[Rfam]
RNA: U7 small nuclear RNA
RNA sequence: AAGUGUUACAGCUCUUUUACAGUUUGUCUAGCAGGCUUUCUGGUUUUUGCUGGAAAGCCCCC
Numbered sequence: 001a002a003g004u005g006u007u008a009c010a011g012c013u014c015u016u017u018u019a020c021a022g023u024u025u026g027u028c029u030a031g032c033a034g035g036c037u038u039u040c041u042g043g044u045u046u047u048u049g050c051u052g053g054a055a056a057g058c059c060c061c062c
Base pairs, nucleotide, nucleotide: 034059035058036057037056038055039054040053041052042051043050044049